[Rfam]
Rfam assigns this 337-nucleotide sequence from Candidatus Izimoplasma sp. HR1 to the family "Bacterial RNase P class B". The source organism's lineage runs through Bacteria, Mycoplasmatota, Candidatus Izemoplasmatales, Candidatus Izemoplasmataceae and Candidatus Izemoplasma. Ribonuclease P (RNase P) is a ubiquitous endoribonuclease, found in archaea, bacteria and eukarya as well as chloroplasts and mitochondria. Rfam classes the family as a ribozyme.

RNA sequence: AUAACCGGGCAACCGAGCGUGUAAACGUUAGGAAAGUCCAUGCUAGCACAAGCUGCGAUGCUUGUAGUGAUUGUGAUAGAGGAAACAAUAACUCUAUGUACACAGUAAUGUGUAACGGCUGAGAACGUACCUGUUAAAUGGUAUUAGUAUCUUUAAAAGUGCCACAGAGACGAGCUGGAUAGGAAACUAUUCAGGUGGAACGGGUAAACCCCUCAAGCUAGAAACCCAAACUUGGUAGGGGCACUCCAACGCGAGAAUUUUGAAUCGACAAUGGAGCUGCUUUAAGCAGAGAUAAAUGGUUGCCGCCCUUUAUGGGUACAGAACAUGGCUUAUAAGU
Numbered sequence: 001a002u003a004a005c006c007g008g009g010c011a012a013c014c015g016a017g018c019g020u021g022u023a024a025a026c027g028u029u030a031g032g033a034a035a036g037u038c039c040a041u042g043c044u045a046g047c048a049c050a051a052g053c054u055g056c057g058a059u060g061c062u063u064g065u066a067g068u069g070a071u072u073g074u075g076a077u078a079g080a081g082g083a084a085a086c087a088a089u090a091a092c093u094c095u096a097u098g099u100a101c102a103c104a105g106u107a108a109u110g111u112g113u114a115a116c117g118g119c120u121g122a123g124a125a126c127g128u129a130c131c132u133g134u135u136a137a138a139u140g141g142u143a144u145u146a147g148u149a150u151c152u153u154u155a156a157a158a159g160u161g162c163c164a165c166a167g168a169g170a171c172g173a174g175c176u177g178g179a180u181a182g183g184a185a186a187c188u189a190u191u192c193a194g195g196u197g198g199a200a201c202g203g204g205u206a207a208a209c210c211c212c213u214c215a216a217g218c219u220a221g222a223a224a225c226c227c228a229a230a231c232u233u234g235g236u237a238g239g240g241g242c243a244c245u246c247c248a249a250c251g252c253g254a255g256a257a258u259u260u261u262g263a264a265u266c267g268a269c270a271a272u273g274g275a276g277c278u279g280c281u282u283u284a285a286g287c288a289g290a291g292a293u294a295a296a297u298g299g300u301u302g303c304c305g306c307c308c309u310u311u312a313u314g315g316g317u318a319c320a321g322a323a324c325a326u327g328g329c330u331u332a333u334a335a336g337u
Stems, first nucleotide, its partner, number of pairs: 004337002007333001008304007016029005034331003038328005043221005048065006071216003075212001076097006098116001099114006117211002121151002128143004159209002161205003175194008225240003244276005277289005306316003